This 138-nucleotide sequence from Molossus molossus belongs to the Rfam family "Small Cajal body specific RNA 3".
For this family Rfam cites "RNomics: an experimental approach that identifies 201 candidates for novel, small, non-messenger RNAs in mouse" (Huttenhofer et al., EMBO J, 2001).
The family's RNA type in Rfam is small Cajal body RNA.
Its Rfam clan is "SCARNA3 clan".
The family has 23 seed sequences and 642 matches in Rfam 15.1.
The organism belongs to Molossus, within Eukaryota.
Rfam links the family to the GO terms nucleolus, Cajal body and RNA processing.
RNA sequence: AAUGGAACCUGCAGGUACCAAACAUGUGGACAAAUGAAAAAUGCUUUGUCUACAAAUUGCAGUGAUCCUACAUAAACAUGGAGGCCUCUGUCUGCCUUAGCACAGCUGGCUAAGUCUGAUCGUUCCCCUCCACACAAG
Numbered sequence: 001a002a003u004g005g006a007a008c009c010u011g012c013a014g015g016u017a018c019c020a021a022a023c024a025u026g027u028g029g030a031c032a033a034a035u036g037a038a039a040a041a042u043g044c045u046u047u048g049u050c051u052a053c054a055a056a057u058u059g060c061a062g063u064g065a066u067c068c069u070a071c072a073u074a075a076a077c078a079u080g081g082a083g084g085c086c087u088c089u090g091u092c093u094g095c096c097u098u099a100g101c102a103c104a105g106c107u108g109g110c111u112a113a114g115u116c117u118g119a120u121c122g123u124u125c126c127c128c129u130c131c132a133c134a135c136a137a138g
Stems, first nucleotide, its partner, number of pairs: 004068003009062004025054007036047003080131005088122001090120003094116001096114005